[Rfam]
RNA sequence: UUGCCACGGGUAAGUCUUUUACGACCAGCUCCCUUUGAACUCCCCCAGGGUGGGAACACAGCAAGGGUAAGAGGUUGAGCGGUGCGAUAAAAGGGGCUUGCCCUUUU
Numbered sequence: 001u002u003g004c005c006a007c008g009g010g011u012a013a014g015u016c017u018u019u020u021a022c023g024a025c026c027a028g029c030u031c032c033c034u035u036u037g038a039a040c041u042c043c044c045c046c047a048g049g050g051u052g053g054g055a056a057c058a059c060a061g062c063a064a065g066g067g068u069a070a071g072a073g074g075u076u077g078a079g080c081g082g083u084g085c086g087a088u089a090a091a092a093g094g095g096g097c098u099u100g101c102c103c104u105u106u107u
Base pairs, nucleotide, nucleotide: 008103009102010101011100012099013098014097015096017092018091019090020089021088022086023085024083025082